The family of this 81-nucleotide RNA sequence from Bombyx mori is "mir-2807 microRNA precursor family". Lineage of the source: Eukaryota > Hexapoda > Neoptera > Eumetabola > Bombyx. The base pairs follow the family's consensus structure, which was predicted with RNAalifold. The match comes from Rfam's covariance-model search (70 bits). The literature on the family includes a 2010 paper in BMC Genomics by Liu et al., "MicroRNAs of Bombyx mori identified by Solexa sequencing".
[Rfam]
RNA sequence: UUAACAUAAAUUUGUAUGGAAUUGGAACGUUUGCCUAUGUUUGCCGCUAGGGGCGCUGUUCCGACUGCAUACAAAGAAUUA
Numbered sequence: 001u002u003a004a005c006a007u008a009a010a011u012u013u014g015u016a017u018g019g020a021a022u023u024g025g026a027a028c029g030u031u032u033g034c035c036u037a038u039g040u041u042u043g044c045c046g047c048u049a050g051g052g053g054c055g056c057u058g059u060u061c062c063g064a065c066u067g068c069a070u071a072c073a074a075a076g077a078a079u080u081a
Stems, first nucleotide, its partner, number of pairs: 011075006018068001020066001022064008034052003039047002